[Rfam]
RNA sequence: UGAGCGGUUCCGGGAGAGACCCCGCGGACACCGCCGCGCGGGCGCCGUAGGAGCAACCCUCCCCGGGAAACUCUCAGGCACCGGCACCGGGAUCGCUCG
Numbered sequence: 001u002g003a004g005c006g007g008u009u010c011c012g013g014g015a016g017a018g019a020c021c022c023c024g025c026g027g028a029c030a031c032c033g034c035c036g037c038g039c040g041g042g043c044g045c046c047g048u049a050g051g052a053g054c055a056a057c058c059c060u061c062c063c064c065g066g067g068a069a070a071c072u073c074u075c076a077g078g079c080a081c082c083g084g085c086a087c088c089g090g091g092a093u094c095g096c097u098c099g
Stems, first nucleotide, its partner, number of pairs: 006094008020042003044079003047075001051073003057066002
RNA: Glycine riboswitch aptamer
Organism: Kocuria palustris